[Rfam]
Nucleotides: 275
Base pairs, nucleotide, nucleotide: 001015002014003013004012020271021270022269025266027265028264029263031261032260035258037256038254039253040252045249046248047247048246049245050244051243052242053241054240055239056238066073067072074231075230076229077228078227080224081223083218084217085216086215087214089212090211092208093207094206095205097203098202099201100200102145104143105142106141107140109138111136112130113129114128115127116126118125119124146150154199155198156197157196158195159194165190166189167188172183173182174181
Number, partner (000 for none) and nucleotide at each position: 001015u002014g003013g004012c005000u006000g007000u008000a009000g010000u011000g012004g013003u014002c015001a016000u017000u018000u019000c020271g021270g022269a023000a024000g025266g026000c027265g028264g029263c030000u031261u032260u033000c034000a035258c036000a037256a038254u039253u040252c041000u042000c043000c044000u045249u046248u047247c048246g049245c050244u051243a052242u053241u054240c055239c056238a057000u058000u059000u060000c061000c062000g063000u064000u065000a066073g067072a068000u069000c070000c071000c072067u073066c074231u075230a076229a077228c078227g079000g080224c081223g082000c083218c084217c085216a086215g087214c088000a089212c090211g091000a092208a093207u094206g095205c096000u097203g098202c099201a100200g101000u102145g103000g104143c105142c106141a107140c108000c109138c110000a111136c112130u113129c114128g115127c116126a117000c118125g119124g120000g121000u122000a123000a124119c125118c126116u127115g128114c129113g130112a131000u132000u133000g134000c135000u136111g137000c138109g139000c140107g141106u142105g143104g144000c145102c146150c147000u148000a149000a150146g151000c152000a153000a154199u155198g156197a157196a158195g159194a160000c161000g162000a163000c164000a165190c166189u167188u168000g169000a170000g171000g172183g173182a174181g175000g176000u177000u178000u179000c180000a181174c182173u183172c184000u185000g186000c187000a188167g189166a190165g191000g192000c193000a194159u195158c196157u197156u198155c199154a200100c201099u202098g203097u204000c205095g206094c207093a208092u209000g210000g211090c212089g213000c214087g215086c216085u217084g218083g219000a220000u221000u222000a223081c224080g225000a226000u227078c228077g229076u230075u231074a232000g233000g234000g235000g236000c237000u238056u239055g240054g241053a242052a243051u244050a245049g246048c247047g248046g249045g250000c251000u252040g253039a254038g255000a256037u257000g258035g259000a260032g261031a262000u263029g264028c265027c266025c267000a268000c269022u270021c271020c272000u273000u274000u275000u
The record is a 275-nucleotide RNA from Pleurostoma richardsiae, which matches "Fungal signal recognition particle RNA" in Rfam. It scores 155 bits against the family's covariance model. Its family is annotated with SRP-dependent cotranslational protein targeting to membrane, signal sequence recognition, signal recognition particle, plasma membrane targeting and signal recognition particle, endoplasmic reticulum targeting in the Gene Ontology. Pairs were carried over by alignment from the consensus structure, which is taken from published work. On this family, see Wild et al., Curr Opin Struct Biol 2002: "Towards the structure of the mammalian signal recognition particle". It is annotated as a non-coding RNA gene. Taxonomically the source falls in Pleurostoma (Eukaryota, Opisthokonta, Ascomycota, sordariomyceta).